Nucleotides: 102
Base pairs, nucleotide, nucleotide: 019087020086021085022084023083024082025081030048031047032046033045034044035043058078059077060076061075062074063073064072
Number, partner (000 for none) and nucleotide at each position: 001000a002000a003000c004000g005000a006000u007000a008000a009000c010000a011000a012000a013000u014000g015000a016000a017000a018000c019087c020086c021085u022084c023083a024082u025081a026000u027000a028000a029000u030048u031047u032046c033045g034044g035043g036000a037000a038000u039000a040000u041000g042000g043035c044034u045033c046032g047031a048030a049000c050000g051000u052000u053000u054000c055000u056000a057000c058078c059077u060076g061075g062074u063073u064072g065000c066000c067000g068000u069000a070000a071000a072064c073063g074062a075061c076060c077059g078058g079000u080000c081025u082024a083023u084022g085021a086020g087019g088000a089000a090000g091000c092000g093000u094000a095000g096000g097000a098000u099000a100000u101000g102000c